The family of this 118-nucleotide sequence from Garciella nitratireducens is "FMN riboswitch aptamer (RFN element)".

RNA sequence: AAGUAUCUUCAGGGCAGGGUGCAAUUCCCGACCGGCGGUAAAGUCCGCGAGCCACUCCGGUGGUUGAAUUGGUGAAAUUCCAAUACCGACAGUACAGUCUGGAUGGGAGAGGAUAUGA
Numbered sequence: 001a002a003g004u005a006u007c008u009u010c011a012g013g014g015c016a017g018g019g020u021g022c023a024a025u026u027c028c029c030g031a032c033c034g035g036c037g038g039u040a041a042a043g044u045c046c047g048c049g050a051g052c053c054a055c056u057c058c059g060g061u062g063g064u065u066g067a068a069u070u071g072g073u074g075a076a077a078u079u080c081c082a083a084u085a086c087c088g089a090c091a092g093u094a095c096a097g098u099c100u101g102g103a104u105g106g107g108a109g110a111g112g113a114u115a116u117g118a
Stems, first nucleotide, its partner, number of pairs: 003116008017029003031098002033088002035048004043086002051064003068084005090101003

Notes: Pairs were carried over by alignment from the consensus structure, which is taken from published work. Lineage of the source: Bacteria > Bacillota > Eubacteriales > Eubacteriaceae > Garciella nitratireducens.